[Rfam]
Shown here is a 105-nucleotide sequence from Variovorax terrae, a member of the family "Glycine riboswitch aptamer". Rfam describes the family as follows. This family represents the bacterial glycine riboswitch.
RNA sequence: GAAAAGCCGUCUGGAGAGCCAUCACCACCGUGAUGCACCGAAGGAGCAAGCCCCCCGGAGAACCGGCGGGUGAAUCUCUCAGGUACCAAGGACAGGGGGAGCGGC
Dot-bracket structure: ......((.((((......((((........)))).(((((..(((...((((..............))))....))))).)))........)))).))......
It scores 57 bits against the family's covariance model.